[Rfam]
RNA: S10-Clostridia ribosomal protein leader
RNA sequence: GAUAUGCGAUGAAACGGAAGGUUGCUGGCGGUAUGUCAGGUAAUUUCCGCGGAGUAUGUCCGAUUUUAAACCGGGCGGCUG
Numbered sequence: 001g002a003u004a005u006g007c008g009a010u011g012a013a014a015c016g017g018a019a020g021g022u023u024g025c026u027g028g029c030g031g032u033a034u035g036u037c038a039g040g041u042a043a044u045u046u047c048c049g050c051g052g053a054g055u056a057u058g059u060c061c062g063a064u065u066u067u068a069a070a071c072c073g074g075g076c077g078g079c080u081g
Stems, first nucleotide, its partner, number of pairs: 015049002019046003025039005058079003064075003